Source information:
This 87-nucleotide RNA from Aegilops tauschii belongs to the Rfam family "MIR1120/MIR1122 microRNA precursor family". For this family Rfam cites "Cloning and characterization of microRNAs from wheat (Triticum aestivum L.)" (Yao et al., Genome Biol, 2007). Rfam links the family to the GO terms RISC complex and miRNA-mediated post-transcriptional gene silencing.
RNA sequence: GUACUCCCUCCAUCUCAUAAUGUAAGACAUUUUUUGACACUACACUAGUGUUAAAAAGCGUCUUACAUUUUGGGACGGAGGGAGUAC
Numbered sequence: 001g002u003a004c005u006c007c008c009u010c011c012a013u014c015u016c017a018u019a020a021u022g023u024a025a026g027a028c029a030u031u032u033u034u035u036g037a038c039a040c041u042a043c044a045c046u047a048g049u050g051u052u053a054a055a056a057a058g059c060g061u062c063u064u065a066c067a068u069u070u071u072g073g074g075a076c077g078g079a080g081g082g083a084g085u086a087c
Base pairs, nucleotide, nucleotide: 003085004084005083007081008080009079010078011077013075014074015073016072017071019069020068021067022066023065024064025063026062027061028060030058031057032056033055034054035053036052037051038050039049040048041047